[Rfam]
RNA sequence: ACCGAGACUAGAGUCACAUCUAGAUGUUACCAGUUAUCGUGGUGUGCUAUAGUCCUCGAAGAGUAACAGCUGACCUUUAUUCACUGGCUGUCCUCCCCAUAGUACAGUCAGCCACCAGGUUAGCAACAGAA
Numbered sequence: 001a002c003c004g005a006g007a008c009u010a011g012a013g014u015c016a017c018a019u020c021u022a023g024a025u026g027u028u029a030c031c032a033g034u035u036a037u038c039g040u041g042g043u044g045u046g047c048u049a050u051a052g053u054c055c056u057c058g059a060a061g062a063g064u065a066a067c068a069g070c071u072g073a074c075c076u077u078u079a080u081u082c083a084c085u086g087g088c089u090g091u092c093c094u095c096c097c098c099a100u101a102g103u104a105c106a107g108u109c110a111g112c113c114a115c116c117a118g119g120u121u122a123g124c125a126a127c128a129g130a131a
Stems, first nucleotide, its partner, number of pairs: 003058004007053003012048002015046006023038004070123007084111004089106003093102002
Shown here is a 131-nucleotide RNA sequence from Varanus komodoensis, a member of the family "Small nucleolar RNA SNORA3/SNORA45 family". Gene Ontology terms of the family: nucleolus and RNA processing. By type it is an H/ACA-box small nucleolar RNA. On this family, see Huttenhofer et al., EMBO J 2001: "RNomics: an experimental approach that identifies 201 candidates for novel, small, non-messenger RNAs in mouse". Rfam describes the family as follows. The members of this family belong to the H/ACA class of snoRNAs which are thought to guide the sites of modification of uridines to pseudouridines. Rfam 15.1 lists 2,080 matches to the family in 639 species. The family's consensus secondary structure was predicted with RNAalifold.